The family of this 224-nucleotide RNA from Frankia casuarinae is "Group II catalytic intron D1-D4-6". Rfam's curators put it in the seed alignment. On this family, see Bonen and Vogel, Trends Genet 2001: "The ins and outs of group II introns". Rfam 15.1 lists 1,617 matches to the family in 661 species. The base pairs follow the family's consensus structure. Lineage of the source: Bacteria > Actinomycetota > Frankiales > Frankiaceae > Frankia.
[Rfam]
RNA sequence: UAAACCGGCCUUAGGAUAAGGAGUAGCGAUCCACGACGACCCCGAGCCAUGUGGCUGCUUCCGCAAGGGGGCGGCUGAAGCGUUGGUAGGGGCACGUGUAGGCCAGGCUAUUGAGCCGCGAAAUGAGAAGACCGGGUGCGCCGACGUGGUCGAAAGCACGGAAGGCAACACCGUCGCGAGCGCUAGACGCGAGUUCGGGACGGGCCCCGCGCGGUCGGAGAACC
Numbered sequence: 001u002a003a004a005c006c007g008g009c010c011u012u013a014g015g016a017u018a019a020g021g022a023g024u025a026g027c028g029a030u031c032c033a034c035g036a037c038g039a040c041c042c043c044g045a046g047c048c049a050u051g052u053g054g055c056u057g058c059u060u061c062c063g064c065a066a067g068g069g070g071g072c073g074g075c076u077g078a079a080g081c082g083u084u085g086g087u088a089g090g091g092g093c094a095c096g097u098g099u100a101g102g103c104c105a106g107g108c109u110a111u112u113g114a115g116c117c118g119c120g121a122a123a124u125g126a127g128a129a130g131a132c133c134g135g136g137u138g139c140g141c142c143g144a145c146g147u148g149g150u151c152g153a154a155a156g157c158a159c160g161g162a163a164g165g166c167a168a169c170a171c172c173g174u175c176g177c178g179a180g181c182g183c184u185a186g187a188c189g190c191g192a193g194u195u196c197g198g199g200a201c202g203g204g205c206c207c208c209g210c211g212c213g214g215u216c217g218g219a220g221a222a223c224c
Stems, first nucleotide, its partner, number of pairs: 010038001012036001014034001020032003024192001026190002040092004046087004050082002052077011112218001113216001115215006133209004138205002140166003145160004171203005177197005